[Rfam]
RNA sequence: CGCCGUCGUACGGGAGAGUUUCGGCCAGCCUCGGCUGUCCGGACGCCGAAGGAGCAGCACCUCCCCGUCAAUCUCUCAGGCAUAGAGGACCGUGCGGGCUUC
Numbered sequence: 001c002g003c004c005g006u007c008g009u010a011c012g013g014g015a016g017a018g019u020u021u022c023g024g025c026c027a028g029c030c031u032c033g034g035c036u037g038u039c040c041g042g043a044c045g046c047c048g049a050a051g052g053a054g055c056a057g058c059a060c061c062u063c064c065c066c067g068u069c070a071a072u073c074u075c076u077c078a079g080g081c082a083u084a085g086a087g088g089a090c091c092g093u094g095c096g097g098g099c100u101u102c
Stems, first nucleotide, its partner, number of pairs: 006097008020043004045081003048077002052075003059068002

Glycine riboswitch aptamer: a 102-nucleotide sequence from Antrihabitans stalactiti. Rfam's curators write: This family represents the bacterial glycine riboswitch. The base pairs follow the family's consensus structure. The match comes from Rfam's covariance-model search (54 bits).